[Rfam]
RNA sequence: AAUUAGCCCCGAUUGGAGGGAAAAUCCUUCCGGUUUUGUACCGGGAGAUUUGGAAGGAAAGCGGGAACAGGG
Numbered sequence: 001a002a003u004u005a006g007c008c009c010c011g012a013u014u015g016g017a018g019g020g021a022a023a024a025u026c027c028u029u030c031c032g033g034u035u036u037u038g039u040a041c042c043g044g045g046a047g048a049u050u051u052g053g054a055a056g057g058a059a060a061g062c063g064g065g066a067a068c069a070g071g072g
Stems, first nucleotide, its partner, number of pairs: 009064003013060002023050003027047008
RNA: Flavo-1 RNA